[Rfam]
RNA: TPP riboswitch aptamer (THI element)
Organism: Photorhabdus laumondii
RNA sequence: GCCAUCUCAACGGGGUGCUGGCUGUUUAAAACAGCCUUGCUGAGAGUAAACCCGCCGAACCUGAUCCGGCUAAUACCGGCGUAGGGAUUUGAGCUGCUAACUAUU
Numbered sequence: 001g002c003c004a005u006c007u008c009a010a011c012g013g014g015g016u017g018c019u020g021g022c023u024g025u026u027u028a029a030a031a032c033a034g035c036c037u038u039g040c041u042g043a044g045a046g047u048a049a050a051c052c053c054g055c056c057g058a059a060c061c062u063g064a065u066c067c068g069g070c071u072a073a074u075a076c077c078g079g080c081g082u083a084g085g086g087a088u089u090u091g092a093g094c095u096g097c098u099a100a101c102u103a104u105u
Stems, first nucleotide, its partner, number of pairs: 006093005011054004016048001017040002020037002060085004066079004
Dot-bracket structure: .....(((((((((.(((.((..............)).)).......)..)))).....((((..((((......))))..))))...)))))............